Source information:
The family of this 52-nucleotide sequence from Mesorhizobium japonicum is "serC leader". The base pairs follow the family's consensus structure. Rfam describes the family as follows. This family is a putative regulatory RNA structure that is found upstream of the serC-serA operon in some alpha-proteobacteria. The final stem of the structure overlaps the ribosome binding site of the serC reading frame.
RNA sequence: CCGUGGGCCACCCCUCCCCAACGAGGGGCCACUAUCUGGAAGGAUAGACCAC
Numbered sequence: 001c002c003g004u005g006g007g008c009c010a011c012c013c014c015u016c017c018c019c020a021a022c023g024a025g026g027g028g029c030c031a032c033u034a035u036c037u038g039g040a041a042g043g044a045u046a047g048a049c050c051a052c
Base pairs, nucleotide, nucleotide: 011028012027013026014025015024016023032047033046034045035044036043037042